Overview: Lysine riboswitch aptamer: a 172-nucleotide RNA sequence from Clostridium tagluense. Pairs were carried over by alignment from the consensus structure, which is taken from published work. A search with the family's covariance model found it, with a score of 116 bits.
RNA sequence: ACCUAGGGUAGAGGUGCUAUAUCUAAAAGUACUUGUUCGGAGCUGACAGGCGAGGAUGAAUAAGGAAAGGAGCUAUAGCCGAAGAAGAUAUAUUUUGUGAAAAUAUUUUCUGGUUUUACAUAUAAUAUGUGUACGACUGUCACUGAUUUUUCAGUGGAGAACUACAAGGUAC
Numbered sequence: 001a002c003c004u005a006g007g008g009u010a011g012a013g014g015u016g017c018u019a020u021a022u023c024u025a026a027a028a029g030u031a032c033u034u035g036u037u038c039g040g041a042g043c044u045g046a047c048a049g050g051c052g053a054g055g056a057u058g059a060a061u062a063a064g065g066a067a068a069g070g071a072g073c074u075a076u077a078g079c080c081g082a083a084g085a086a087g088a089u090a091u092a093u094u095u096u097g098u099g100a101a102a103a104u105a106u107u108u109u110c111u112g113g114u115u116u117u118a119c120a121u122a123u124a125a126u127a128u129g130u131g132u133a134c135g136a137c138u139g140u141c142a143c144u145g146a147u148u149u150u151u152c153a154g155u156g157g158a159g160a161a162c163u164a165c166a167a168g169g170u171a172c
Stems, first nucleotide, its partner, number of pairs: 008165004016079006023072002032064008083111009093101002112138004117133006140157007